[Rfam]
Notes
The record is a 79-nucleotide RNA from Medicago truncatula, which matches "MIR5269 microRNA precursor family" in Rfam.
RNA sequence: UUGGUUUAAAUUAAUGUGAGUCUACAAUUUAAAAAUGGAACCCACAUAAAGUGGUAGGAUAUACAAUGAUUUUAUCUAA
Dot-bracket structure: ((((.(.((((((.((((...(((((.((((...............)))).)).)))....)))).)))))).).))))
The family's consensus secondary structure was predicted with RNAalifold. It scores 63 bits against the family's covariance model. Lineage of the source: Eukaryota > Mesangiospermae > Pentapetalae > rosids > Medicago.